A member of the RNA family "FMN riboswitch aptamer (RFN element)" from Pontibacillus chungwhensis, 145 nucleotides long. From the family's description: The RFN element is a highly conserved domain that is found frequently in the 5'-untranslated regions of prokaryotic mRNAs that encode for flavin mononucleotide (FMN) biosynthesis and transport proteins. This element is a metabolite-dependent riboswitch that directly binds FMN in the absence of proteins. The base pairs follow the family's consensus structure, which is taken from published work. Taxonomically the source falls in Pontibacillus chungwhensis (Bacteria, Bacillota, Caryophanales, Bacillaceae). Rfam links the family to the GO term FMN binding.
[Rfam]
RNA sequence: UAGUUCCUUCGGGGUCGGGUGCAAAUCCCAACCGGCGGUGAUCAAGAUUCGUCUUGCUAGCCCGCGACCCGCAGAGCAUGCUCUUGCGGUUGAUUUGGUGAGAAACCAGAGCCGACGGUAAAAGUCCGGAUGGGAGAAGGAAUAA
Numbered sequence: 001u002a003g004u005u006c007c008u009u010c011g012g013g014g015u016c017g018g019g020u021g022c023a024a025a026u027c028c029c030a031a032c033c034g035g036c037g038g039u040g041a042u043c044a045a046g047a048u049u050c051g052u053c054u055u056g057c058u059a060g061c062c063c064g065c066g067a068c069c070c071g072c073a074g075a076g077c078a079u080g081c082u083c084u085u086g087c088g089g090u091u092g093a094u095u096u097g098g099u100g101a102g103a104a105a106c107c108a109g110a111g112c113c114g115a116c117g118g119u120a121a122a123a124g125u126c127c128g129g130a131u132g133g134g135a136g137a138a139g140g141a142a143u144a145a
Stems, first nucleotide, its partner, number of pairs: 003143008017029003031125002033114002035065004060112002069089002094110005116128003
Dot-bracket structure: ..((((((((......(((.......))).[[((((((.....................[[))))...((.................))....(((((.......)))))]])).(((.....]]))).......))))))))..